A member of the RNA family "Bacterial large subunit ribosomal RNA", 454 nucleotides of a longer RNA. The family's consensus secondary structure is taken from published work.

[Rfam]
RNA sequence: CUCCCCGAAAUGCGUUGAGGCGCAGCAGUUGACUGGACAUCUAGGGGUAAAGCACUGUUUCGGUGCGGGCUGCGCGAGCGGUACCAAAUCGAGGCAAACUCUGAAUACUAGAUAUGACCCAAAAAUAACAGGGGUCAAGGUCGGCCAGUGAGACGAUGGGGGAUAAGCUUCAUCGUCGAGAGGGAAACAGCCCGGAUCACCAGCUAAGGCCCCUAAAUGACCGCUCAGUGAUAAAAAAGGUGGGGGUGCAAAGACAGCCAGGAGGUUUGCCUAGAAGCAGCCACCCUUUAAAGAGUGCAUAAUAGCUCACUGAUUGAGCGCCCUUGCGCUGAAGAUGAACGGGGCUAAGCGAUCUGCCGAAGCUGUGGGAUGUCAAAAUGCAUCGGUAGGGGAGCGUUCCGCCUUAGAGGGAAGCAACCGCGAAAGCGGGGGUCGACGAAGCGGAAGCGAGAAU
Numbered sequence: 001c002u003c004c005c006c007g008a009a010a011u012g013c014g015u016u017g018a019g020g021c022g023c024a025g026c027a028g029u030u031g032a033c034u035g036g037a038c039a040u041c042u043a044g045g046g047g048u049a050a051a052g053c054a055c056u057g058u059u060u061c062g063g064u065g066c067g068g069g070c071u072g073c074g075c076g077a078g079c080g081g082u083a084c085c086a087a088a089u090c091g092a093g094g095c096a097a098a099c100u101c102u103g104a105a106u107a108c109u110a111g112a113u114a115u116g117a118c119c120c121a122a123a124a125a126u127a128a129c130a131g132g133g134g135u136c137a138a139g140g141u142c143g144g145c146c147a148g149u150g151a152g153a154c155g156a157u158g159g160g161g162g163a164u165a166a167g168c169u170u171c172a173u174c175g176u177c178g179a180g181a182g183g184g185a186a187a188c189a190g191c192c193c194g195g196a197u198c199a200c201c202a203g204c205u206a207a208g209g210c211c212c213c214u215a216a217a218u219g220a221c222c223g224c225u226c227a228g229u230g231a232u233a234a235a236a237a238a239g240g241u242g243g244g245g246g247u248g249c250a251a252a253g254a255c256a257g258c259c260a261g262g263a264g265g266u267u268u269g270c271c272u273a274g275a276a277g278c279a280g281c282c283a284c285c286c287u288u289u290a291a292a293g294a295g296u297g298c299a300u301a302a303u304a305g306c307u308c309a310c311u312g313a314u315u316g317a318g319c320g321c322c323c324u325u326g327c328g329c330u331g332a333a334g335a336u337g338a339a340c341g342g343g344g345c346u347a348a349g350c351g352a353u354c355u356g357c358c359g360a361a362g363c364u365g366u367g368g369g370a371u372g373u374c375a376a377a378a379u380g381c382a383u384c385g386g387u388a389g390g391g392g393a394g395c396g397u398u399c400c401g402c403c404u405u406a407g408a409g410g411g412a413a414g415c416a417a418c419c420g421c422g423a424a425a426g427c428g429g430g431g432g433u434c435g436a437c438g439a440a441g442c443g444g445a446a447g448c449g450a451g452a453a454u
Stems, first nucleotide, its partner, number of pairs: 001394006011024005026148001028145006035119001037115001039113006050102001051100002056096003060092004067085002069082005152177010182193003197368004202364003208358003217355001219354002222351003236330001240327010257314001259312003263287003269281002288292001293308001297306002369384005395449001397446006405439001407437001414433002418429004